[Rfam]
RNA: Mammalian CPEB3 ribozyme
Organism: Crocodylus porosus
RNA sequence: GGUGCACCUAUAGCAGCCACAGCAGAAGCGCUCACGUUGUGGUCCUGUCAGAUUCUAAUGAAUUUGCAAAUUCUGCU
Numbered sequence: 001g002g003u004g005c006a007c008c009u010a011u012a013g014c015a016g017c018c019a020c021a022g023c024a025g026a027a028g029c030g031c032u033c034a035c036g037u038u039g040u041g042g043u044c045c046u047g048u049c050a051g052a053u054u055c056u057a058a059u060g061a062a063u064u065u066g067c068a069a070a071u072u073c074u075g076c077u
Stems, first nucleotide, its partner, number of pairs: 013045001016043003021077007028040003049066007